[Rfam]
Rfam assigns this 117-nucleotide RNA sequence from Glycine max to the family "MIR1520 microRNA precursor family".
RNA sequence: UUCUAAUUGGAUGAUCAUUAUUACGUCAUGUUUUGAUUGAAUGUUAAAUACAUGGAAGAUGAAAUACAUUGUUGUUGUCAUCGAUCGAUCAGAACAUAACACGUGACAUCAUCAUCC
Numbered sequence: 001u002u003c004u005a006a007u008u009g010g011a012u013g014a015u016c017a018u019u020a021u022u023a024c025g026u027c028a029u030g031u032u033u034u035g036a037u038u039g040a041a042u043g044u045u046a047a048a049u050a051c052a053u054g055g056a057a058g059a060u061g062a063a064a065u066a067c068a069u070u071g072u073u074g075u076u077g078u079c080a081u082c083g084a085u086c087g088a089u090c091a092g093a094a095c096a097u098a099a100c101a102c103g104u105g106a107c108a109u110c111a112u113c114a115u116c117c
Base pairs, nucleotide, nucleotide: 021106022105023104025102026101028097029096031094032093033092034091036089037088038087
A search with the family's covariance model found it, with a score of 98 bits. Rfam links the family to the GO terms miRNA-mediated post-transcriptional gene silencing and RISC complex.